[Rfam]
The family of this 228-nucleotide part of an RNA from Coccidioides immitis is "Eukaryotic large subunit ribosomal RNA". It is one of the family's seed sequences. NCBI's taxonomy places the organism under Eukaryota, Fungi, Dikarya, Onygenaceae, Coccidioides immitis.

RNA sequence: CGCUUGCAACCAGACUCGGUCGUGGGGGCUCAGCGGGCAUGCGUGCCCGUGUACUCCCCCAUGCUCCGGGCCAGCAUCAGUUCUGGCGGUUGGUUAAAGGCCUCUGGAAUGUAUCGUCCUCCGGGACGUCUUAUAGCCAGGGGCGCAAUGCGGCCAGCCGGGACUGAGGAACGCGCUUCGGCACGGAUGCUGGCAUAAUGGUUGUAAGCGGCCCGUCUUGAAACACGG
Numbered sequence: 001c002g003c004u005u006g007c008a009a010c011c012a013g014a015c016u017c018g019g020u021c022g023u024g025g026g027g028g029c030u031c032a033g034c035g036g037g038c039a040u041g042c043g044u045g046c047c048c049g050u051g052u053a054c055u056c057c058c059c060c061a062u063g064c065u066c067c068g069g070g071c072c073a074g075c076a077u078c079a080g081u082u083c084u085g086g087c088g089g090u091u092g093g094u095u096a097a098a099g100g101c102c103u104c105u106g107g108a109a110u111g112u113a114u115c116g117u118c119c120u121c122c123g124g125g126a127c128g129u130c131u132u133a134u135a136g137c138c139a140g141g142g143g144c145g146c147a148a149u150g151c152g153g154c155c156a157g158c159c160g161g162g163a164c165u166g167a168g169g170a171a172c173g174c175g176c177u178u179c180g181g182c183a184c185g186g187a188u189g190c191u192g193g194c195a196u197a198a199u200g201g202u203u204g205u206a207a208g209c210g211g212c213c214c215g216u217c218u219u220g221a222a223a224c225a226c227g228g
Stems, first nucleotide, its partner, number of pairs: 001210012017068001021063006072192007213228004